[Rfam]
RNA sequence: GGAUUUCGUCGUCGCGAUGGUAAUUGAACUUAGUACGAGAGGAACCGUUCAUUCAGAUAUUUGGUAUUUGCGCCUGUCCGAUAGGGCAAUGGCGCGAAGCUAUCAUCUGCUGGAUUAUGGCUGAACGCCUCUAAGCCAGAAUCCGUGCCAGAAGCGACGAUGUUGGUCCCGCCCAUAAAACGUGUGUUUAAAUAGGGUCUUUGGCCCGUGAACCAAAUAAGGUGGACUAGGCCGGUUGAGCGGAAACGCUUGGUCGGUUCGUUCGCGAAUCGAAACUAUAAUAUGUGCGGGGGUGAAUCCUUUGCAGACGACUUGAAUGGGAACGGGGUACUGUAAGCGGUAGAGUAGCCUUGUUGCUACGAUCCGCUGAGGUUAAGCCCUUGUUCUAAAGAUUUGU
Dot-bracket structure: .......((((((((..((((.(.(((((.................))))).)(((((...(((....(((((.(((((....)))))...)))))...)))..))))).(((....(((((...........)))))....))).))))...))))))))......(((((.(..............................................................................................................).)))))...(((((.(..(.......)..)....(((((((((.((.....((((.(..(((((......)))))..)))))....))....))).))))))...)))))..
Rfam assigns this 397-nucleotide part of an RNA from Jaapia argillacea to the family "Eukaryotic large subunit ribosomal RNA". The base pairs follow the family's consensus structure, which is taken from published work.